[Rfam]
RNA sequence: ACUAUCAAAGCCAAAUCUCAACAAUUGAGAACGGAGGACCCAAUCUUUUGGGGUUAAUUCUGCAUUGCAGGAAGGAUGAUAUAUAUACUCUUUCGCCAUCCUAACCCGUCGGCUAAUGCGAAGGAGAUGGUAAAGGACUU
Number, nucleotide and partner (000 for none) at each position: 001a000002c000003u000004a000005u000006c000007a000008a000009a000010g000011c124012c123013a000014a000015a000016u030017c029018u028019c000020a000021a000022c000023a000024a000025u000026u000027g000028a018029g017030a016031a000032c120033g119034g000035a117036g000037g000038a000039c000040c000041c050042a049043a000044u000045c000046u000047u000048u000049u042050g041051g107052g106053g105054u000055u000056a000057a000058u000059u071060c070061u069062g068063c000064a000065u000066u000067g000068c062069a061070g060071g059072a000073a000074g101075g100076a099077u098078g000079a000080u000081a000082u000083a000084u000085a000086u000087a000088c000089u000090c000091u000092u000093u000094c000095g000096c000097c000098a077099u076100c075101c074102u000103a000104a000105c053106c052107c051108g000109u000110c000111g000112g000113c000114u000115a000116a000117u035118g000119c033120g032121a000122a000123g012124g011125a000126g000127a000128u000129g000130g000131u000132a000133a000134a000135g000136g000137a000138c000139u000140u000
A member of the RNA family "c-di-AMP riboswitch aptamer (ydaO/yuaA leader)" from Bacillus sp. OxB-1, 140 nucleotides long.
The pairing is the family consensus, mapped onto this sequence.